This 137-nucleotide RNA from Thalassotalea piscium belongs to the Rfam family "Ribosomal S15 leader".
Pairs were carried over by alignment from the consensus structure, which is taken from published work.
The match comes from Rfam's covariance-model search (65 bits).
Rfam's curators write: The E. coli Ribosomal S15 gene 5' UTR can form two alternative structures. One that is a series of three hairpins, The other includes a pseudoknot. This structure causes translational regulation of the S15 protein. The alignment of this family contains only the final two hairpins which are conserved in other species, and also includes the complete region that forms the alternate structures.

RNA sequence: UUAUCUUGCUGAAUUAGUGUUUGGCUUGAUAAUAAUUUUUAUACCUUCGGGUAUUACUAUUUAAACACUAAGGAUUUAUUAUGUCUUUAAACGCCGCUGAAAAAGCUGCUAUCGUUGCUGAAUAUGCACAAAGUGAA
Number, nucleotide and partner (000 for none) at each position: 001u000002u000003a000004u000005c000006u000007u000008g025009c024010u023011g022012a021013a000014u000015u000016a000017g000018u000019g000020u000021u012022u011023g010024g009025c008026u000027u000028g000029a000030u000031a000032a000033u000034a000035a000036u000037u000038u000039u000040u000041a000042u000043a000044c000045c000046u090047u089048c000049g000050g000051g000052u000053a000054u000055u000056a000057c000058u000059a000060u000061u000062u000063a000064a000065a000066c000067a000068c000069u000070a088071a087072g086073g085074a000075u000076u000077u000078a000079u000080u000081a000082u000083g000084u000085c073086u072087u071088u070089a047090a046091a000092c000093g000094c000095c000096g000097c000098u000099g000100a000101a000102a000103a000104a000105g000106c000107u000108g000109c000110u000111a000112u000113c000114g000115u000116u000117g000118c000119u000120g000121a000122a000123u000124a000125u000126g000127c000128a000129c000130a000131a000132a000133g000134u000135g000136a000137a000